[Rfam]
RNA: MIR2275 microRNA precursor family
Organism: Kingdonia uniflora
RNA sequence: AUCUUGAAUGUGAGAGUUGGAUGAAACCAAACCUUGAGUAACUUAACCUUAACCUUUUCUAGGUUCAAACUGUUCAAGAAGGUUUGGUUUCCUCCAAUAUCUCAUUUUCAAAUA
Numbered sequence: 001a002u003c004u005u006g007a008a009u010g011u012g013a014g015a016g017u018u019g020g021a022u023g024a025a026a027c028c029a030a031a032c033c034u035u036g037a038g039u040a041a042c043u044u045a046a047c048c049u050u051a052a053c054c055u056u057u058u059c060u061a062g063g064u065u066c067a068a069a070c071u072g073u074u075c076a077a078g079a080a081g082g083u084u085u086g087g088u089u090u091c092c093u094c095c096a097a098u099a100u101c102u103c104a105u106u107u108u109c110a111a112a113u114a
Stems, first nucleotide, its partner, number of pairs: 004111005011104004016098006023091008032082004